[Rfam]
RNA sequence: AGGUGGGACACCCCUCCCCAACGAGGGGCUUCUAUCUGGAAGGGUAGCAGAU
Numbered sequence: 001a002g003g004u005g006g007g008a009c010a011c012c013c014c015u016c017c018c019c020a021a022c023g024a025g026g027g028g029c030u031u032c033u034a035u036c037u038g039g040a041a042g043g044g045u046a047g048c049a050g051a052u
Base pairs, nucleotide, nucleotide: 011028012027013026014025015024016023032047033046034045035044036043037042
RNA: serC leader